[Rfam]
RNA sequence: GUCGCAUAUUUGAGGCCAUGGCAGAAGCUCUCACAGCCCUGUCAGAUACCAGUGUAUCUGUGAAUUCUGCU
Numbered sequence: 001g002u003c004g005c006a007u008a009u010u011u012g013a014g015g016c017c018a019u020g021g022c023a024g025a026a027g028c029u030c031u032c033a034c035a036g037c038c039c040u041g042u043c044a045g046a047u048a049c050c051a052g053u054g055u056a057u058c059u060g061u062g063a064a065u066u067c068u069g070c071u
Stems, first nucleotide, its partner, number of pairs: 012039001014038003020071007027034001043060007

Shown here is a 71-nucleotide RNA from Alligator mississippiensis, a member of the family "Mammalian CPEB3 ribozyme".
A search with the family's covariance model found it, with a score of 44 bits.
The mammalian CPEB3 ribozyme is a self cleaving RNA located in the second intron of the CPEB3 gene which belongs to a family of genes regulating messenger RNA polyadenylation.
The base pairs follow the family's consensus structure, which is taken from published work.
Lineage of the source: Eukaryota > Chordata > Tetrapoda > Amniota > Alligator.